[Rfam]
RNA sequence: GCGUGGGUCGGCCCGCUGAGAGUGACGCAGUGGGCCGGGGGAGACCGCCGUCCUCAUCCCCGCGGACGGCGGACCGGUCCGGGAGGUGAACGGCGCCUCCCGGACCGCG
Number, nucleotide and partner (000 for none) at each position: 001g108002c107003g000004u000005g000006g075007g074008u073009c037010g036011g035012c034013c033014c032015g031016c030017u029018g028019a000020g000021a000022g000023u000024g000025a000026c000027g000028c018029a017030g016031u015032g014033g013034g012035c011036c010037g009038g000039g000040g000041g000042a000043g000044a000045c072046c071047g070048c069049c068050g067051u066052c065053c064054u000055c062056a000057u000058c000059c000060c000061c000062g055063c000064g053065g052066a051067c050068g049069g048070c047071g046072g045073a008074c007075c006076g106077g105078u104079c103080c102081g101082g100083g099084a098085g097086g096087u095088g094089a000090a000091c000092g000093g000094c088095g087096c086097c085098u084099c083100c082101c081102g080103g079104a078105c077106c076107g002108c001109g000

The family of this 109-nucleotide sequence from Streptomyces sp. TverLS-915 is "Streptomyces RNA 4115". The family's RNA type in Rfam is small RNA. The pairing is the family consensus, mapped onto this sequence. On this family, see Vockenhuber et al., RNA Biol 2011: "Deep sequencing-based identification of small non-coding RNAs in Streptomyces coelicolor". The source organism's lineage runs through Bacteria, Bacillati, Actinomycetes, Kitasatosporales and Streptomyces. Rfam describes the family as follows. Identified by deep sequencing of transcriptome at the end of exponential growth phase. Sequencing size consistent with notrthern blot size.